RNA sequence: AAUACUGCUGUAGUUAAAACGCCCGUAGUAAACCUAAGAGUGUUUGCGGGGUAACUAGUUCCAUCAGGAGAUGGUUGGAGGGAGCUUAUAACUCCCUUUUGCCUACUCUUGGUGAACUUUAGCUGGGCAGGACUUCUGGUCCUCGUCUGGCAGUUGCCUCGUAUUCACUCGUCCACGGUUCAUCCGUGAGGCCCCUUUGGGUUGCAACUGUAAAUAAAUCGUUGUGCUUAAAGCGGGCUAUGAUACUCUGCCAGAGCGAUUUAGCAUGGGACUGCAGAGUAGCUGUAUUUGAGCGAAGGUUGGACUUCGGUUUGACUGUAGCUUGGUACAGCGCUUGUAAUGGAGCUCAGGGUGAGGCCCCGGGUACCAUGAGGCUAGAGGUGAAAUUCUGAGACCCUCAUGUGACCAACUAAGGCGAAAGCUGUCGUGGGCCACCACAAGCUCGUCUAUCAGGGACGAAAGUUGGGUUAUCGAAGACGAUUAGAUACCGUCGUAGUCCCAACUAUAAACGAUACCAACCGAGUAUUUGGGAAGACACUAUCCCAGCGAUCUUCUCAGAACUCAAGGGAAACCUUAAGUCUUUGGGUUCUGG
Number, nucleotide and partner (000 for none) at each position: 001a000002a000003u000004a000005c000006u000007g000008c000009u000010g000011u591012a590013g589014u000015u000016a000017a000018a000019a588020c000021g457022c000023c455024c454025g000026u000027a000028g450029u449030a448031a000032a000033c000034c000035u000036a000037a000038g000039a000040g000041u000042g000043u000044u000045u000046g000047c000048g000049g000050g000051g000052u000053a000054a000055c000056u000057a000058g000059u000060u000061c000062c000063a000064u000065c000066a000067g000068g000069a000070g000071a000072u000073g000074g000075u000076u000077g000078g000079a000080g000081g000082g000083a000084g000085c000086u000087u000088a000089u000090a000091a000092c000093u000094c000095c000096c000097u000098u000099u000100u000101g000102c000103c000104u000105a000106c000107u000108c000109u000110u000111g000112g000113u000114g000115a000116a000117c000118u000119u000120u000121a000122g000123c000124u000125g000126g000127g000128c000129a000130g000131g000132a000133c000134u000135u000136c000137u000138g000139g000140u000141c000142c000143u000144c000145g000146u000147c000148u000149g000150g000151c000152a000153g000154u000155u000156g000157c000158c000159u000160c000161g000162u000163a000164u000165u000166c000167a000168c000169u000170c000171g000172u000173c000174c000175a000176c000177g000178g000179u000180u000181c000182a000183u000184c000185c000186g000187u000188g000189a000190g000191g000192c000193c000194c000195c000196u000197u000198u000199g000200g000201g000202u000203u000204g000205c000206a000207a000208c000209u000210g000211u000212a000213a000214a000215u000216a000217a000218a000219u000220c000221g000222u000223u000224g000225u000226g000227c000228u000229u000230a000231a000232a000233g000234c000235g000236g000237g000238c000239u000240a000241u000242g000243a000244u000245a000246c000247u000248c000249u000250g000251c000252c000253a000254g000255a000256g000257c000258g000259a000260u000261u000262u000263a000264g000265c000266a000267u000268g000269g000270g000271a000272c000273u000274g000275c000276a000277g000278a000279g000280u000281a000282g000283c000284u000285g000286u000287a000288u000289u000290u000291g000292a000293g000294c000295g000296a000297a000298g000299g000300u000301u000302g000303g000304a000305c000306u000307u000308c000309g000310g000311u000312u000313u000314g000315a000316c000317u000318g000319u000320a000321g000322c000323u000324u000325g000326g000327u000328a000329c000330a000331g000332c000333g000334c000335u000336u000337g000338u000339a000340a000341u000342g000343g444344a443345g442346c441347u000348c000349a000350g438351g000352g436353u000354g000355a000356g433357g432358c431359c430360c429361c000362g000363g407364g406365u000366a000367c000368c402369a401370u400371g399372a398373g397374g396375c000376u000377a000378g389379a388380g387381g000382u000383g000384a000385a000386a000387u380388u379389c378390u000391g000392a000393g000394a000395c000396c374397c373398u372399c371400a370401u369402g368403u000404g000405a000406c364407c363408a000409a000410c000411u000412a423413a000414g000415g422416c421417g000418a000419a000420a000421g416422c415423u412424g000425u000426c000427g000428u000429g360430g359431g358432c357433c356434a000435c000436c352437a000438c350439a000440a000441g346442c345443u344444c343445g000446u000447c000448u030449a029450u028451c000452a000453g000454g024455g023456a000457c021458g000459a000460a000461a000462g503463u502464u501465g500466g499467g498468u000469u000470a000471u000472c496473g000474a000475a000476g492477a491478c490479g489480a000481u000482u000483a000484g000485a000486u000487a000488c000489c479490g478491u477492c476493g000494u000495a000496g472497u000498c467499c466500c465501a464502a463503c462504u000505a000506u000507a000508a000509a000510c000511g000512a000513u000514a587515c586516c585517a000518a579519c578520c000521g563522a562523g561524u000525a000526u000527u558528u557529g556530g555531g554532a553533a552534g551535a000536c000537a000538c548539u000540a000541u000542c000543c000544c000545a000546g000547c000548g538549a000550u000551c534552u533553u532554c531555u530556c529557a528558g527559a000560a000561c523562u522563c521564a000565a000566g573567g572568g000569a000570a000571a000572c567573c566574u000575u000576a000577a000578g519579u518580c000581u000582u000583u000584g000585g516586g515587u514588u019589c013590u012591g011592g000
The family of this 592-nucleotide part of an RNA from Naegleria lovaniensis is "Eukaryotic small subunit ribosomal RNA". Its family is annotated with structural constituent of ribosome and ribosome in the Gene Ontology. A search with the family's covariance model found it, with a score of 1384 bits.